[Rfam]
mir-5879 microRNA precursor family: a 76-nucleotide RNA sequence from Brugia malayi. The sequence is in the family's curated seed alignment. Pairs were carried over by alignment from the consensus structure, which was predicted with RNAalifold. Rfam links the family to the GO terms RISC complex and miRNA-mediated post-transcriptional gene silencing.
RNA sequence: AAACAACCUAGCAGGAAAGACUCAACUAUGUGCAUCUAUAUCUACGCAUAGUUGAGUCUUUUCUGCUAGACUGAUU
Numbered sequence: 001a002a003a004c005a006a007c008c009u010a011g012c013a014g015g016a017a018a019g020a021c022u023c024a025a026c027u028a029u030g031u032g033c034a035u036c037u038a039u040a041u042c043u044a045c046g047c048a049u050a051g052u053u054g055a056g057u058c059u060u061u062u063c064u065g066c067u068a069g070a071c072u073g074a075u076u
Stems, first nucleotide, its partner, number of pairs: 004073002008069025034043001
Dot-bracket structure: ...((..(((((((((((((((((((((((((.(........).)))))))))))))))))))))))))..))...